[Rfam]
RNA sequence: UCGUCCAGCCUCCAAUUUUUGCUUCUCUUUCCAGCUCUGAUAGAGGACUUGUGGCGGACGUAGAUUAAACGCUCCUCCGUUAGGAGGGUUUCUUGGAGUAUUGAGUGGCCCUCAAAGGCACAAGAGGACAUU
Numbered sequence: 001u002c003g004u005c006c007a008g009c010c011u012c013c014a015a016u017u018u019u020u021g022c023u024u025c026u027c028u029u030u031c032c033a034g035c036u037c038u039g040a041u042a043g044a045g046g047a048c049u050u051g052u053g054g055c056g057g058a059c060g061u062a063g064a065u066u067a068a069a070c071g072c073u074c075c076u077c078c079g080u081u082a083g084g085a086g087g088g089u090u091u092c093u094u095g096g097a098g099u100a101u102u103g104a105g106u107g108g109c110c111c112u113c114a115a116a117g118g119c120a121c122a123a124g125a126g127g128a129c130a131u132u
Stems, first nucleotide, its partner, number of pairs: 002060005010053001021049001023047001025045004030040001074127004080117002084113007092105005
Description
Rfam assigns this 132-nucleotide RNA from Salvator merianae to the family "Small Cajal body specific RNA 11". It is annotated as a small Cajal body RNA. Rfam's curators write: scaRNAs are a specific class of small nuclear RNAs which localise to the Cajal bodies and guide the modification of RNA polymerase II transcribed spliceosomal RNAs U1, U2, U4, U5 and U12.